Small nucleolar RNA SNORA28: a 120-nucleotide sequence from Myotis lucifugus. Rfam classes the family as an H/ACA-box small nucleolar RNA. On this family, see Huttenhofer et al., EMBO J 2001: "RNomics: an experimental approach that identifies 201 candidates for novel, small, non-messenger RNAs in mouse". About the family: ACA28 is a member of the H/ACA class of snoRNA that guide the sites of modification of uridines to pseudouridines.
RNA sequence: GAGCAACACUCUGUGGCAGAGGAUGGACACAGUCUGACACAAUCUGAGCUUCCUAUAGCCAUAAAGUUUAACCUAUUCCGGUGCUCUCCUCUAUGAGACAAGCCGUUAUAUAGACUUAGU
Dot-bracket structure: ........(((((((.((((............)))).))))....)))...............(((((((...(((..((((..((((......))))...))))..))))))))))...
Numbered sequence: 001g002a003g004c005a006a007c008a009c010u011c012u013g014u015g016g017c018a019g020a021g022g023a024u025g026g027a028c029a030c031a032g033u034c035u036g037a038c039a040c041a042a043u044c045u046g047a048g049c050u051u052c053c054u055a056u057a058g059c060c061a062u063a064a065a066g067u068u069u070a071a072c073c074u075a076u077u078c079c080g081g082u083g084c085u086c087u088c089c090u091c092u093a094u095g096a097g098a099c100a101a102g103c104c105g106u107u108a109u110a111u112a113g114a115c116u117u118a119g120u
Stems, first nucleotide, its partner, number of pairs: 009048003012041004017036004064117007074110003079105004085098004
Gene Ontology terms of the family: nucleolus and RNA processing.
The family's consensus secondary structure was predicted with RNAfold.
Lineage of the source: Eukaryota > Bilateria > Chordata > Laurasiatheria > Myotis.